[Rfam]
RNA sequence: AAAUGUCCUUGAAUUCGAGACUAAUAAAGGUGCGUGCCGGAUGCGACCUGUCGGCUGAAGAGGACCCUAGUUGGUCCUAAAACGGCCUGAGGUAGAGGGGUUUUAGUCGGUAGGUCCGAGGACUUCUUCCUCGGGAAUCCGACACUACCCAGUCGUACGGACGGCUGGGUGUCUUCUGAAGAUUUCCCCUCUUCCACGAAA
Numbered sequence: 001a002a003a004u005g006u007c008c009u010u011g012a013a014u015u016c017g018a019g020a021c022u023a024a025u026a027a028a029g030g031u032g033c034g035u036g037c038c039g040g041a042u043g044c045g046a047c048c049u050g051u052c053g054g055c056u057g058a059a060g061a062g063g064a065c066c067c068u069a070g071u072u073g074g075u076c077c078u079a080a081a082a083c084g085g086c087c088u089g090a091g092g093u094a095g096a097g098g099g100g101u102u103u104u105a106g107u108c109g110g111u112a113g114g115u116c117c118g119a120g121g122a123c124u125u126c127u128u129c130c131u132c133g134g135g136a137a138u139c140c141g142a143c144a145c146u147a148c149c150c151a152g153u154c155g156u157a158c159g160g161a162c163g164g165c166u167g168g169g170u171g172u173c174u175u176c177u178g179a180a181g182a183u184u185u186c187c188c189c190u191c192u193u194c195c196a197c198g199a200a201a
Stems, first nucleotide, its partner, number of pairs: 005065006071200002074197002091195002094192002097188003106143005115135008145171001147170005
A member of the RNA family "R2 RNA element" from Agrilus planipennis, 201 nucleotides long. Taxonomically the source falls in Agrilus (Eukaryota, Mandibulata, Altocrustacea, Neoptera). On this family, see Luan et al., Cell 1993: "Reverse transcription of R2Bm RNA is primed by a nick at the chromosomal target site: a mechanism for non-LTR retrotransposition". This family represents the 3' UTR region of the R2 retrotransposable element. A search with the family's covariance model found it, with a score of 44 bits. The family's consensus secondary structure is taken from published work.